[Rfam]
RNA sequence: GGCUAGUCCAAAGGUAGUGAGCAAUCUGAAUUGAUUGUUCAGUCAGUUACAGAUCAAACUCCUUGUUCUACCUUUGCCCCCUUCUCACUAUUGCAAUUAACUAGUCUUAA
Numbered sequence: 001g002g003c004u005a006g007u008c009c010a011a012a013g014g015u016a017g018u019g020a021g022c023a024a025u026c027u028g029a030a031u032u033g034a035u036u037g038u039u040c041a042g043u044c045a046g047u048u049a050c051a052g053a054u055c056a057a058a059c060u061c062c063u064u065g066u067u068c069u070a071c072c073u074u075u076g077c078c079c080c081c082u083u084c085u086c087a088c089u090a091u092u093g094c095a096a097u098u099a100a101c102u103a104g105u106c107u108u109a110a
Stems, first nucleotide, its partner, number of pairs: 001106007010098002014094002016089006041073002045069002
RNA: Y RNA
Organism: Rhinopithecus roxellana